[Rfam]
RNA sequence: AAAGUUCGAUACGAAAUAGAAAUGGCGAUUCGUUUCGGCCCCGAGUCAUGGGGGAUAUGCCGUGAGGCGUAGCUCCAAGCGUUGACAGGGGAAACCGGCAGGCCAGCCAUUGAGCCGCGAAAUCACGAACUCCGGGAUGCCGACGUCGUACAGACAGGCGGAAGGCGACACGGCUGCGGGCGCUAAUCGCAAGUGCGCAGACGAUCCCGCGCGGUCGGAGACCC
Numbered sequence: 001a002a003a004g005u006u007c008g009a010u011a012c013g014a015a016a017u018a019g020a021a022a023u024g025g026c027g028a029u030u031c032g033u034u035u036c037g038g039c040c041c042c043g044a045g046u047c048a049u050g051g052g053g054g055a056u057a058u059g060c061c062g063u064g065a066g067g068c069g070u071a072g073c074u075c076c077a078a079g080c081g082u083u084g085a086c087a088g089g090g091g092a093a094a095c096c097g098g099c100a101g102g103c104c105a106g107c108c109a110u111u112g113a114g115c116c117g118c119g120a121a122a123u124c125a126c127g128a129a130c131u132c133c134g135g136g137a138u139g140c141c142g143a144c145g146u147c148g149u150a151c152a153g154a155c156a157g158g159c160g161g162a163a164g165g166c167g168a169c170a171c172g173g174c175u176g177c178g179g180g181c182g183c184u185a186a187u188c189g190c191a192a193g194u195g196c197g198c199a200g201a202c203g204a205u206c207c208c209g210c211g212c213g214g215u216c217g218g219a220g221a222c223c224c
Stems, first nucleotide, its partner, number of pairs: 012037005019031003023192001025190002039091004045086004049081002051076004056071006111218001112216001114215006133209006139166003144160004171203002174200005180194002